[Rfam]
RNA sequence: CGAGUGGAACAGGUGAUCGCGGCUGUCAUAUGACAGGUGAGGAAAGUCCGGGCUUCACAGGGCAGGAUGCCGGAUAACGUCCGGUAAAGGCGACUUUAAGGAUAGUGCAACAGAAAUAAACCGCUGCAGAUGAUGCAGUAAGGGUGGAAAGGCAGUGUAAGAGACUACCGCCUGGCUGGUAACAGACAGGGGCAUAUGUAAACCCCAUCCGAAGCAAGACCGAAACAAAGCGAUGACGUGGCCCGCCAGCUUUAGGUAGGUCGCUUGAGGCUGUUGGCGACAGCAGUCCUAGAUAGAUGAUCACUCAACGACAUAACCCGGCUUAUCGUUUCGCUCGUUUU
Numbered sequence: 001c002g003a004g005u006g007g008a009a010c011a012g013g014u015g016a017u018c019g020c021g022g023c024u025g026u027c028a029u030a031u032g033a034c035a036g037g038u039g040a041g042g043a044a045a046g047u048c049c050g051g052g053c054u055u056c057a058c059a060g061g062g063c064a065g066g067a068u069g070c071c072g073g074a075u076a077a078c079g080u081c082c083g084g085u086a087a088a089g090g091c092g093a094c095u096u097u098a099a100g101g102a103u104a105g106u107g108c109a110a111c112a113g114a115a116a117u118a119a120a121c122c123g124c125u126g127c128a129g130a131u132g133a134u135g136c137a138g139u140a141a142g143g144g145u146g147g148a149a150a151g152g153c154a155g156u157g158u159a160a161g162a163g164a165c166u167a168c169c170g171c172c173u174g175g176c177u178g179g180u181a182a183c184a185g186a187c188a189g190g191g192g193c194a195u196a197u198g199u200a201a202a203c204c205c206c207a208u209c210c211g212a213a214g215c216a217a218g219a220c221c222g223a224a225a226c227a228a229a230g231c232g233a234u235g236a237c238g239u240g241g242c243c244c245g246c247c248a249g250c251u252u253u254a255g256g257u258a259g260g261u262c263g264c265u266u267g268a269g270g271c272u273g274u275u276g277g278c279g280a281c282a283g284c285a286g287u288c289c290u291a292g293a294u295a296g297a298u299g300a301u302c303a304c305u306c307a308a309c310g311a312c313a314u315a316a317c318c319c320g321g322c323u324u325a326u327c328g329u330u331u332c333g334c335u336c337g338u339u340u341u
Base pairs, nucleotide, nucleotide: 001337002336003335004334005333006332007331008330009329010328011326012305013304014303015302016301017300018299020039021038023036024035025034026033027032044324045323046322048321049320050319051318052317053214054213055212056211060243061242063240065210066209067208068207069206070084071083072082073081074080085099086097087096088095089094100205101204105203106202107199108198109197121143122142123139124138125137126136127135128134151169152168154166155165156164170193171190172189173188174187176185177184178183218262219261220260221259227253228252229251230250231249237245238244269288270287271286272285273284274283275282276281